The record is a 49-nucleotide RNA from Branchiostoma lanceolatum, which matches "Guanidine-II riboswitch aptamer (mini-ykkC)" in Rfam. Rfam describes the family as follows. Simpler in structure and has fewer highly conserved nucleotide positions than the ykkC-yxkD leader.
RNA sequence: GCACCGGGACGACUCGGCACCGGGACGACUCGGCACCGGGACGACUCGG
Numbered sequence: 001g002c003a004c005c006g007g008g009a010c011g012a013c014u015c016g017g018c019a020c021c022g023g024g025a026c027g028a029c030u031c032g033g034c035a036c037c038g039g040g041a042c043g044a045c046u047c048g049g
Stems, first nucleotide, its partner, number of pairs: 001020001004017005036049005

Pairs were carried over by alignment from the consensus structure, which is taken from published work.